The record is a 226-nucleotide RNA sequence from Cucumis melo, which matches "MIR168 microRNA precursor family" in Rfam. The literature on the family includes a 2005 paper in Plant Cell by Lu et al., "Novel and mechanical stress-responsive MicroRNAs in Populus trichocarpa that are absent from Arabidopsis". The base pairs follow the family's consensus structure, which was predicted with WAR.
[Rfam]
RNA sequence: ACACCGGCGGUCUCUAAUUCGCUUGGUGCAGGUCGGGAACCGCUUCGCUCAGCCUACGGUUUACGUUUUGUCGUUGGCCGGUCCUUCUUCAUUUUCCUUUUUUGUUCUUCUCUGCUUUUGUUUUUUGCUUAAUUUCUUUGCCGCUGUGCGGUGUUAUCUUGUUGCGAAAAUGUGUGGGCGAAUUGGAUCCCGCCUUGCAUCAACUGAAUCGGAAACCGUGGUGAAG
Numbered sequence: 001a002c003a004c005c006g007g008c009g010g011u012c013u014c015u016a017a018u019u020c021g022c023u024u025g026g027u028g029c030a031g032g033u034c035g036g037g038a039a040c041c042g043c044u045u046c047g048c049u050c051a052g053c054c055u056a057c058g059g060u061u062u063a064c065g066u067u068u069u070g071u072c073g074u075u076g077g078c079c080g081g082u083c084c085u086u087c088u089u090c091a092u093u094u095u096c097c098u099u100u101u102u103u104g105u106u107c108u109u110c111u112c113u114g115c116u117u118u119u120g121u122u123u124u125u126u127g128c129u130u131a132a133u134u135u136c137u138u139u140g141c142c143g144c145u146g147u148g149c150g151g152u153g154u155u156a157u158c159u160u161g162u163u164g165c166g167a168a169a170a171u172g173u174g175u176g177g178g179c180g181a182a183u184u185g186g187a188u189c190c191c192g193c194c195u196u197g198c199a200u201c202a203a204c205u206g207a208a209u210c211g212g213a214a215a216c217c218g219u220g221g222u223g224a225a226g
Base pairs, nucleotide, nucleotide: 013213014212017209018208019207020206023203024202025201026200027199028198029197030196031195032194034192035191036190037189038188040186041185